[Rfam]
RNA sequence: UCUAUGAUUUCACGAGUGGUCCCCUUCUCGGGGCCCAAGCACCAGCUUGCAGAUGAGGUCUUGACCUCUUCUCGAGCUGGCGCCCGGCAGUCCUGCCAUUCGUGGUGAGCUGUCGGGGCCCCGUCGGGCUCAGGCCCGUCGGAGGGGUGUCCCAUCACCUCGAUCCCGUCCCCUCGAGGAACGACUCGAUGA
Numbered sequence: 001u002c003u004a005u006g007a008u009u010u011c012a013c014g015a016g017u018g019g020u021c022c023c024c025u026u027c028u029c030g031g032g033g034c035c036c037a038a039g040c041a042c043c044a045g046c047u048u049g050c051a052g053a054u055g056a057g058g059u060c061u062u063g064a065c066c067u068c069u070u071c072u073c074g075a076g077c078u079g080g081c082g083c084c085c086g087g088c089a090g091u092c093c094u095g096c097c098a099u100u101c102g103u104g105g106u107g108a109g110c111u112g113u114c115g116g117g118g119c120c121c122c123g124u125c126g127g128g129c130u131c132a133g134g135c136c137c138g139u140c141g142g143a144g145g146g147g148u149g150u151c152c153c154a155u156c157a158c159c160u161c162g163a164u165c166c167c168g169u170c171c172c173c174u175c176g177a178g179g180a181a182c183g184a185c186u187c188g189a190u191g192a
Stems, first nucleotide, its partner, number of pairs: 018152002021147007030122007039083002042080007051072003055068005085115003089111003093107001095106004123140001125138005158179006

Shown here is a 192-nucleotide RNA from Synechococcus sp. KORDI-100, a member of the family "psaA RNA".
It scores 160 bits against the family's covariance model.
NCBI's taxonomy places the organism under Bacteria, Bacillati, Cyanobacteriota, Synechococcaceae, Synechococcus.
By type it is a cis-regulatory element.